Shown here is a 173-nucleotide sequence, a member of the family "Group II catalytic intron D1-D4-3". About the family: Group II introns are found in rRNA, tRNA and mRNA of organelles in fungi, plants and protists, and also in mRNA in bacteria. Gene Ontology term of the family: Group II intron splicing.
[Rfam]
RNA sequence: UCUAUCGUGAGGUAGAAUCUGAAGGAAGUCAGCGGCAAACAUCUGGUCUGACGGACAGAAAUCCGAUAUAAGGCCUAAGGGUGAGGAUGAGUCUGCUGAUGAAGACAAAGUCCGAUAACUAUCCGAAAUCACCCAAGGUAAAUCGGGCAGAUAUAAGAUGGAAAGAGUAUGUC
Dot-bracket structure: ((((((....))))))...........(.((....(...(((((.(((((...........((((((.....(((...((((((((((..((((........))))...))))...............))))))..)))..)))))))))))...)))))....)....)).)